[Rfam]
Rfam assigns this 52-nucleotide RNA sequence from Acyrthosiphon pisum to the family "mir-3017 microRNA precursor family". Its family is annotated with RISC complex and miRNA-mediated post-transcriptional gene silencing in the Gene Ontology. A reference for the family is Legeai et al. (2010), "Bioinformatic prediction, deep sequencing of microRNAs and expression analysis during phenotypic plasticity in the pea aphid, Acyrthosiphon pisum", BMC Genomics. A search with the family's covariance model found it, with a score of 56 bits. The family has 2 seed sequences and 58 matches in Rfam 15.1.
Nucleotides: 052
Stems, first nucleotide, its partner, number of pairs: 001050014016035002020032003
Number, partner (000 for none) and nucleotide at each position: 001050c002049c003048g004047u005046g006045u007044u008043c009042u010041g011040u012039g013038a014037c015000u016035g017034a018000c019000u020032c021031g022030g023000c024000u025000g026000g027000c028000g029000u030022c031021c032020g033000a034017u035016c036000u037014g038013u039012c040011a041010c042009a043008g044007a045006a046005c047004a048003u049002g050001g051000g052000a